A member of the RNA family "tRNA" from Actinocorallia herbida, 73 nucleotides long. A search with the family's covariance model found it, with a score of 61 bits. NCBI's taxonomy places the organism under Bacteria, Actinomycetota, Actinomycetes, Thermomonosporaceae, Actinocorallia.

RNA sequence: GUGGGUGUAGCUCAGUUGGCAGAGCACCAGGUUGUGAUCCUGGGUGUCGCCGGUUCAAGCCCGGUCACUCACC
Numbered sequence: 001g002u003g004g005g006u007g008u009a010g011c012u013c014a015g016u017u018g019g020c021a022g023a024g025c026a027c028c029a030g031g032u033u034g035u036g037a038u039c040c041u042g043g044g045u046g047u048c049g050c051c052g053g054u055u056c057a058a059g060c061c062c063g064g065u066c067a068c069u070c071a072c073c
Base pairs, nucleotide, nucleotide: 001072002071003070004069005068006067007066010025011024012023013022027043028042029041030040031039049065050064051063052062053061